[Rfam]
RNA: L31-Firmicutes ribosomal protein leader
RNA sequence: CUCUGAUUAACAUAAUAAUCAGGGCCGAAGGAG
Numbered sequence: 001c002u003c004u005g006a007u008u009a010a011c012a013u014a015a016u017a018a019u020c021a022g023g024g025c026c027g028a029a030g031g032a033g
Stems, first nucleotide, its partner, number of pairs: 001024008